[Rfam]
Small nucleolar RNA SNORA14: a 129-nucleotide RNA sequence from Merluccius polli. The base pairs follow the family's consensus structure, which was predicted with RNAfold. Rfam describes the family as follows. ACA14 is a member of the H/ACA class of snoRNA that guide the sites of modification of uridines to pseudouridines. Gene Ontology terms of the family: RNA processing and nucleolus. It is annotated as an H/ACA-box small nucleolar RNA. It scores 38 bits against the family's covariance model. The source organism's lineage runs through Eukaryota, Chordata, Teleostei, Clupeocephala and Merluccius.
RNA sequence: AAGCAUCUUUGAAAACCCCUCAGUGGCCUUUGUGGCCAACGGGACAAAAAAGGGUGCAAGAUUAAAUGUGGAAUUCCAAGGCAGAGAGCUGCAUCAGUUACUCUCGGCCAUUUCACCUCCAAGACAUGA
Numbered sequence: 001a002a003g004c005a006u007c008u009u010u011g012a013a014a015a016c017c018c019c020u021c022a023g024u025g026g027c028c029u030u031u032g033u034g035g036c037c038a039a040c041g042g043g044a045c046a047a048a049a050a051a052g053g054g055u056g057c058a059a060g061a062u063u064a065a066a067u068g069u070g071g072a073a074u075u076c077c078a079a080g081g082c083a084g085a086g087a088g089c090u091g092c093a094u095c096a097g098u099u100a101c102u103c104u105c106g107g108c109c110a111u112u113u114c115a116c117c118u119c120c121a122a123g124a125c126a127u128g129a
Stems, first nucleotide, its partner, number of pairs: 003057004008050003019043003025037003062129002067123001069121004080109003084105003088101001092097001